RNA sequence: CGAGAACCAUUUGAAUCGCUACAAUACUUGAUUCAAAAGGUUCUCAUAA
Numbered sequence: 001c002g003a004g005a006a007c008c009a010u011u012u013g014a015a016u017c018g019c020u021a022c023a024a025u026a027c028u029u030g031a032u033u034c035a036a037a038a039g040g041u042u043c044u045c046a047u048a049a
Base pairs, nucleotide, nucleotide: 002045003044004043005042006041007040008039010037011036012035013034014033015032016031017030